[Rfam]
RNA sequence: AGGAGGCAAGUAUGAUGAAUAGUAAUAUGUGGGAAGAGAAAUAUCUCUUAUGAUUAACAUCUUGAUGCUUAUUGAUAUUCUGACUUGCCAUUU
Numbered sequence: 001a002g003g004a005g006g007c008a009a010g011u012a013u014g015a016u017g018a019a020u021a022g023u024a025a026u027a028u029g030u031g032g033g034a035a036g037a038g039a040a041a042u043a044u045c046u047c048u049u050a051u052g053a054u055u056a057a058c059a060u061c062u063u064g065a066u067g068c069u070u071a072u073u074g075a076u077a078u079u080c081u082g083a084c085u086u087g088c089c090a091u092u093u
Base pairs, nucleotide, nucleotide: 001093002092003091005089006088007087008086009085010084
RNA: Small nucleolar RNA Z266